[Rfam]
RNA sequence: GGUGCCAUGGGAGGUAUCCCAAUCCAGCCUUAGGAAAAGAAACCUUCCAGGGGAGUCUUGCAGAUUGCCGACCAUCCUAAUGGCUCU
Number, nucleotide and partner (000 for none) at each position: 001g000002g086003u000004g084005c000006c082007a081008u080009g078010g077011g076012a075013g000014g073015u000016a000017u070018c000019c000020c067021a066022a065023u064024c063025c000026a000027g000028c000029c060030u000031u000032a000033g000034g000035a000036a000037a059038a058039g057040a056041a000042a000043c053044c052045u051046u050047c000048c000049a000050g046051g045052g044053g043054a000055g000056u040057c039058u038059u037060g029061c000062a000063g024064a023065u022066u021067g020068c000069c000070g017071a000072c000073c014074a000075u012076c011077c010078u009079a000080a008081u007082g006083g000084c004085u000086c002087u000
RNA: mir-9014 microRNA precursor family